This 168-nucleotide RNA sequence from Macaca mulatta belongs to the Rfam family "U1 spliceosomal RNA". Rfam's curators write: U1 is a small nuclear RNA (snRNA) component of the spliceosome (involved in pre-mRNA splicing). Its family is annotated with mRNA 5'-splice site recognition, U1 snRNP and pre-mRNA 5'-splice site binding in the Gene Ontology. It scores 98 bits against the family's covariance model. The family's RNA type in Rfam is spliceosomal small nuclear RNA.

RNA sequence: UUAUUUAAAACCUGACAGGGAGGAUACCAUGAUCAUGAGGGUGGUUUUCCCAGGGCGAGAUUUAUCCAUUGCACUCUGGAUGUGCUGAUGCCCUGCGAUUUCGCCAAAUGUGGGAAACUCAACUGCAUGACUUAUGGUAGUGGAGGACUGCAUUCAUGCUUUCCCCUG
Numbered sequence: 001u002u003a004u005u006u007a008a009a010a011c012c013u014g015a016c017a018g019g020g021a022g023g024a025u026a027c028c029a030u031g032a033u034c035a036u037g038a039g040g041g042u043g044g045u046u047u048u049c050c051c052a053g054g055g056c057g058a059g060a061u062u063u064a065u066c067c068a069u070u071g072c073a074c075u076c077u078g079g080a081u082g083u084g085c086u087g088a089u090g091c092c093c094u095g096c097g098a099u100u101u102c103g104c105c106a107a108a109u110g111u112g113g114g115a116a117a118c119u120c121a122a123c124u125g126c127a128u129g130a131c132u133u134a135u136g137g138u139a140g141u142g143g144a145g146g147a148c149u150g151c152a153u154u155c156a157u158g159c160u161u162u163c164c165c166c167u168g
Stems, first nucleotide, its partner, number of pairs: 016125003019051002022048003026045005052094004057089001059086001061084001063082005097120002099117003104112001142167002145164003150159003